[Rfam]
Rfam assigns this 83-nucleotide RNA sequence from Nicoliella spurrieriana to the family "SAM-III riboswitch aptamer (SMK box)". Rfam links the family to the GO terms methionine adenosyltransferase activity and regulation of translational initiation. NCBI's taxonomy places the organism under Bacteria, Bacillati, Bacilli, Lactobacillales, Nicoliella.
RNA sequence: UAUAGUUAUGAGUCUAUUCCCGAUAGGAUUCACUUUUGUGAAGCUGCCUUGUAACCAAAAUAUUUAGGGGGAAUUAUUAUAUU
Numbered sequence: 001u002a003u004a005g006u007u008a009u010g011a012g013u014c015u016a017u018u019c020c021c022g023a024u025a026g027g028a029u030u031c032a033c034u035u036u037u038g039u040g041a042a043g044c045u046g047c048c049u050u051g052u053a054a055c056c057a058a059a060a061u062a063u064u065u066a067g068g069g070g071g072a073a074u075u076a077u078u079a080u081a082u083u
Base pairs, nucleotide, nucleotide: 017073018072019071020070021069025049026048027047029042030041031040032039033038055068056067